[Rfam]
RNA sequence: UGGCACCCAACAUGGGGCCUGGAUACUGGGGACAGCAUGAGGGACAUGACAGAGGAAAAAGGGGUGAGUGCACCCGCUCAAAUAAUUUGGAGAUGCCGCAGGAGCCUGCUGCAACUGAGCCGAAGGUAAGUUGGUCGUUCAAUCAUGGGGCAAGAAUUGAGCCAGCAUCAGAUUUAUGUGAUACAGUUAAGAGAAGCUCUGCAGGCAAGAGGAGUAAAGGUUAAAAGUGAGGAUUUAUUUCAUUUCUUUGAUUUUGUAAAGGACAUUUGUCCCU
Numbered sequence: 001u002g003g004c005a006c007c008c009a010a011c012a013u014g015g016g017g018c019c020u021g022g023a024u025a026c027u028g029g030g031g032a033c034a035g036c037a038u039g040a041g042g043g044a045c046a047u048g049a050c051a052g053a054g055g056a057a058a059a060a061g062g063g064g065u066g067a068g069u070g071c072a073c074c075c076g077c078u079c080a081a082a083u084a085a086u087u088u089g090g091a092g093a094u095g096c097c098g099c100a101g102g103a104g105c106c107u108g109c110u111g112c113a114a115c116u117g118a119g120c121c122g123a124a125g126g127u128a129a130g131u132u133g134g135u136c137g138u139u140c141a142a143u144c145a146u147g148g149g150g151c152a153a154g155a156a157u158u159g160a161g162c163c164a165g166c167a168u169c170a171g172a173u174u175u176a177u178g179u180g181a182u183a184c185a186g187u188u189a190a191g192a193g194a195a196g197c198u199c200u201g202c203a204g205g206c207a208a209g210a211g212g213a214g215u216a217a218a219g220g221u222u223a224a225a226a227g228u229g230a231g232g233a234u235u236u237a238u239u240u241c242a243u244u245u246c247u248u249u250g251a252u253u254u255u256g257u258a259a260a261g262g263a264c265a266u267u268u269g270u271c272c273c274u
Stems, first nucleotide, its partner, number of pairs: 006031003013025002036048003086125003089121002094119001098112004131153003136150001138149004158201002161197002209249006218236005259274001261272004
Source information:
A member of the RNA family "Mason-Pfizer monkey virus packaging signal" from Nannospalax galili, 274 nucleotides long. The family's consensus secondary structure was predicted with PFOLD. Rfam classes the family as a cis-regulatory element.